[Rfam]
RNA sequence: UUAGUACCUGGCGCUUAAAGAUCAGGCUGAGGUAGCGUAGAUAGUCGCGCGCUAAGAUGCUUUCUGAAAGUUAUGGUUGUAUGAAGCCAAUCGAAAGGCUGUGUGGACGCGGGUUCGAUUCCCGCCAUCUCCACCAAGAGCACUCUGAGCUGCGGUAGAUCUUGAUCCGAAUGUAGACAGAGUGCUGUUGAUGGGGAUGCCAAGGUUUCGACAUGCAGAUGAAUAGAAAUGAGCAGACAACCGGAUAGGCGACUGACCUAAUCAGCGCAAAAGCACUAAAUGUCGCUGCAAACGACGACUCCUACACGGUCCGCAUCGCGGCUUAAGUAGAGUACAGGACGCCAGCUCUCCUGUUUACCAAAACUGGCGCGAAUUCA
Number, nucleotide and partner (000 for none) at each position: 001u000002u000003a000004g000005u000006a000007c000008c000009u000010g000011g000012c000013g000014c000015u000016u000017a000018a000019a000020g000021a000022u000023c000024a000025g000026g000027c000028u000029g000030a000031g000032g000033u000034a000035g000036c000037g000038u000039a000040g000041a000042u000043a000044g000045u000046c000047g000048c000049g000050c000051g000052c000053u000054a000055a000056g000057a000058u000059g000060c000061u000062u000063u000064c000065u000066g000067a000068a000069a000070g000071u000072u000073a000074u000075g242076g241077u240078u239079g238080u000081a000082u000083g000084a000085a000086g000087c236088c233089a000090a000091u226092c000093g224094a000095a000096a000097g000098g000099c218100u217101g216102u215103g214104u213105g212106g000107a000108c000109g125110c124111g123112g122113g121114u000115u000116c000117g000118a000119u000120u000121c113122c112123c111124g110125c109126c199127a198128u197129c196130u195131c194132c193133a000134c000135c000136a000137a000138g000139a000140g000141c000142a000143c000144u000145c000146u000147g000148a000149g000150c000151u000152g000153c000154g000155g000156u000157a000158g000159a000160u000161c000162u000163u000164g000165a000166u000167c000168c000169g000170a000171a000172u000173g000174u000175a000176g000177a000178c000179a000180g000181a000182g000183u000184g000185c000186u000187g000188u000189u000190g000191a000192u000193g132194g131195g130196g129197a128198u127199g126200c000201c000202a000203a000204g000205g000206u000207u000208u000209c000210g000211a000212c105213a104214u103215g102216c101217a100218g099219a000220u000221g000222a000223a000224u093225a000226g091227a000228a000229a000230u000231g000232a000233g088234c000235a000236g087237a000238c079239a078240a077241c076242c075243g258244g257245a000246u255247a000248g000249g000250c000251g000252a000253c000254u000255g246256a000257c244258c243259u000260a000261a000262u000263c000264a000265g000266c000267g000268c000269a000270a000271a000272a000273g000274c000275a000276c000277u000278a000279a000280a000281u000282g000283u000284c000285g000286c000287u000288g000289c000290a000291a000292a000293c000294g000295a000296c000297g000298a000299c000300u000301c000302c000303u000304a000305c000306a000307c000308g000309g000310u000311c000312c000313g000314c000315a000316u000317c000318g000319c000320g000321g000322c000323u000324u000325a000326a000327g000328u000329a000330g000331a000332g000333u000334a000335c000336a352337g351338g350339a349340c000341g368342c367343c366344a365345g364346c000347u000348c000349u339350c338351c337352u336353g000354u000355u000356u000357a000358c000359c000360a000361a000362a000363a000364c345365u344366g343367g342368c341369g000370c000371g000372a000373a000374u000375u000376c000377a000